[Rfam]
RNA sequence: GCUCUGCCACAACGGCUUCCUGACGUGGCAGGUAACAUUUGAAUGGAGCA
Numbered sequence: 001g002c003u004c005u006g007c008c009a010c011a012a013c014g015g016c017u018u019c020c021u022g023a024c025g026u027g028g029c030a031g032g033u034a035a036c037a038u039u040u041g042a043a044u045g046g047a048g049c050a
Stems, first nucleotide, its partner, number of pairs: 004031007013022002015049003019046002